[Rfam]
RNA sequence: GCGCGUGCUGAAGGCCUGUUUCCUAGGCUACAGACGGAGGACUUGUUCCUUAUUUGCGCCUAGGGGAAAGUCCCCGGACCCUUGGCAGAGAGUGCCGCGUGCGCGUGCACGCUGACUUUCCCUGCUUUGCACUGUAACGUCCGCCAAGAAGCGAUCCGUUUGCCGCGGGGAGCCGAGCGGCGUGUGGCGGGGCGUCGUCCGUCAACUCUAUCUAGUUACGCAGGCAGCGCGCCUGGUGCGCGCCAACCACACGGGGCUCAUUCUCAGCGCGGC
Numbered sequence: 001g002c003g004c005g006u007g008c009u010g011a012a013g014g015c016c017u018g019u020u021u022c023c024u025a026g027g028c029u030a031c032a033g034a035c036g037g038a039g040g041a042c043u044u045g046u047u048c049c050u051u052a053u054u055u056g057c058g059c060c061u062a063g064g065g066g067a068a069a070g071u072c073c074c075c076g077g078a079c080c081c082u083u084g085g086c087a088g089a090g091a092g093u094g095c096c097g098c099g100u101g102c103g104c105g106u107g108c109a110c111g112c113u114g115a116c117u118u119u120c121c122c123u124g125c126u127u128u129g130c131a132c133u134g135u136a137a138c139g140u141c142c143g144c145c146a147a148g149a150a151g152c153g154a155u156c157c158g159u160u161u162g163c164c165g166c167g168g169g170g171a172g173c174c175g176a177g178c179g180g181c182g183u184g185u186g187g188c189g190g191g192g193c194g195u196c197g198u199c200c201g202u203c204a205a206c207u208c209u210a211u212c213u214a215g216u217u218a219c220g221c222a223g224g225c226a227g228c229g230c231g232c233c234u235g236g237u238g239c240g241c242g243c244c245a246a247c248c249a250c251a252c253g254g255g256g257c258u259c260a261u262u263c264u265c266a267g268c269g270c271g272g273c
Base pairs, nucleotide, nucleotide: 004271005270006269007268008267009266010265011264014225015224016223017222018221019220022064023063024062025061026060027059028058037051038050039049040048041047069258070257072256073255074254075253084096085095086094087093097112098111099110100109101108102107114196115195116194120192121191122190123189124188125187129185130184131183132182141180142179143178144177151163152162153161154160227243228242229241230240231239232238
RNase MRP: a 273-nucleotide RNA sequence from Canis lupus. It is one of the family's seed sequences. Its family is annotated with ribonuclease MRP complex, rRNA processing and ribonuclease MRP activity in the Gene Ontology. The base pairs follow the family's consensus structure, which is taken from published work. The family's RNA type in Rfam is ribozyme.